[Rfam]
RNA sequence: CCUGCUCCUAGAGGCAUUACAGGUAUGGCUACCAUGUCAUAUGUACAUCAGUAGGUGACAAAGAGGAGAGAGGCUAUGUCUAUGCUUAGUGUUAUGAACUCUGAACAGCUGAAUGAUCUAUGAACAUUUGAAUGAUUACUAGCCUAACAUU
Number, nucleotide and partner (000 for none) at each position: 001c000002c000003u060004g059005c000006u057007c055008c054009u053010a052011g000012a000013g049014g048015c000016a000017u000018u000019a000020c000021a044022g000023g000024u041025a040026u039027g038028g037029c036030u000031a000032c000033c000034a000035u000036g029037u028038c027039a026040u025041a024042u000043g000044u021045a000046c000047a000048u014049c013050a000051g000052u010053a009054g008055g007056u000057g006058a000059c004060a003061a000062a000063g000064a000065g000066g000067a000068g148069a000070g000071a145072g144073g143074c142075u141076a140077u000078g000079u000080c000081u000082a000083u134084g133085c000086u131087u130088a129089g128090u126091g125092u124093u123094a000095u000096g000097a000098a000099c000100u000101c000102u000103g000104a000105a000106c000107a000108g000109c000110u000111g000112a000113a000114u000115g000116a000117u000118c000119u000120a000121u000122g000123a093124a092125c091126a090127u000128u089129u088130g087131a086132a000133u084134g083135a000136u000137u000138a000139c000140u076141a075142g074143c073144c072145u071146a000147a000148c068149a000150u000151u000
Shown here is a 151-nucleotide RNA from Mus spicilegus, a member of the family "Small nucleolar RNA SNORA17".
Rfam classes the family as an H/ACA-box small nucleolar RNA.
Rfam describes the family as follows. snoRNA ACA 17 belongs to the H/ACA family of snoRNAs and is predicted to guide pseudouridylation of the 28S rRNA at positions U4659 and U4598.
NCBI's taxonomy places the organism under Eukaryota, Opisthokonta, Euarchontoglires, Mus, Mus.